A member of the RNA family "Lysine riboswitch aptamer" from Leuconostoc carnosum, 168 nucleotides long.

RNA sequence: GAAAAUCAUAGAGGUUGCCGCAGACAUAAGUCGCUCGCGGAGUGCUGGCAGGUACUUUGAAACGGGUAAAAGGGGAUACGGCCGAAGCACUAACACUGUCAUGUUGGUUAGCUGGGUCAUUAGUUAAUAUCUAAUGGACUGUCGCGAAAGCGGAGUGCUAUGACAGGA
Numbered sequence: 001g002a003a004a005a006u007c008a009u010a011g012a013g014g015u016u017g018c019c020g021c022a023g024a025c026a027u028a029a030g031u032c033g034c035u036c037g038c039g040g041a042g043u044g045c046u047g048g049c050a051g052g053u054a055c056u057u058u059g060a061a062a063c064g065g066g067u068a069a070a071a072g073g074g075g076a077u078a079c080g081g082c083c084g085a086a087g088c089a090c091u092a093a094c095a096c097u098g099u100c101a102u103g104u105u106g107g108u109u110a111g112c113u114g115g116g117u118c119a120u121u122a123g124u125u126a127a128u129a130u131c132u133a134a135u136g137g138a139c140u141g142u143c144g145c146g147a148a149a150g151c152g153g154a155g156u157g158c159u160a161u162g163a164c165a166g167g168a
Stems, first nucleotide, its partner, number of pairs: 006163006017082004022077001025074001033067005086113003089108007114140002117137007142153004

Riboswitches are metabolite binding domains within certain messenger RNAs that serve as precision sensors for their corresponding targets. The family's consensus secondary structure is taken from published work. The organism belongs to Leuconostoc carnosum, within Bacteria. Gene Ontology term of the family: lysine biosynthetic process.